Rfam assigns this 49-nucleotide RNA from Pseudomyxococcus hansupus to the family "nhaA-I RNA". Taxonomically the source falls in Pseudomyxococcus (Bacteria, Pseudomonadati, Myxococcia, Myxococcales). Acidobacteria, Alphaproteobacteria, Betaproteobacteria and Gammaproteobacteria, Verrucomicrobia, cand. division NC10. The sequence is in the family's curated seed alignment. By type it is a riboswitch.
[Rfam]
RNA sequence: GGGUGCGGCGAUGCGCGCCGCAGGACCACGGAUGGUCGGGCCGCCAUCC
Number, nucleotide and partner (000 for none) at each position: 001g000002g000003g000004u000005g021006c020007g019008g018009c017010g016011a000012u000013g000014c000015g000016c010017g009018c008019c007020g006021c005022a000023g000024g000025a000026c000027c000028a000029c000030g049031g048032a047033u046034g045035g044036u043037c000038g000039g000040g000041c000042c000043g036044c035045c034046a033047u032048c031049c030